Background
Rfam assigns this 78-nucleotide RNA sequence from Acipenser ruthenus to the family "mir-1 microRNA precursor family". Pairs were carried over by alignment from the consensus structure, which was predicted with RNAalifold. About the family: This family represents the microRNA (miRNA) mir-1 family. miRNAs are transcribed as ~70nt precursors (modelled here) and subsequently processed by the Dicer enzyme to give a ~22nt product. In this case the mature sequence comes from the 3' arm of the precursor. The extents of the hairpin precursors are not generally known and are estimated based on hairpin prediction. The products are thought to have regulatory roles through complementarity to mRNA. The involvement of Dicer in miRNA processing suggests a relationship with the phenomenon of RNA interference. miRNAs are numbered based on the sequence of the mature RNA. This family also contains the mir-206 from human, which appears to be related to mir-1. The literature on the family includes a 2001 paper in Science by Lee and Ambros, "An extensive class of small RNAs in Caenorhabditis elegans". The match comes from Rfam's covariance-model search (81 bits). Lineage of the source: Eukaryota > Bilateria > Vertebrata > Gnathostomata > Acipenser.
RNA sequence: GCCCGGGGUACAUACUUCUUUAUGUACCCAUAUGAACAUACAAAAGUUAUGGAAUGUAAAGAAGUAUGUAUUUUUGGU
Numbered sequence: 001g002c003c004c005g006g007g008g009u010a011c012a013u014a015c016u017u018c019u020u021u022a023u024g025u026a027c028c029c030a031u032a033u034g035a036a037c038a039u040a041c042a043a044a045a046g047u048u049a050u051g052g053a054a055u056g057u058a059a060a061g062a063a064g065u066a067u068g069u070a071u072u073u074u075u076g077g078u
Stems, first nucleotide, its partner, number of pairs: 007072019028052005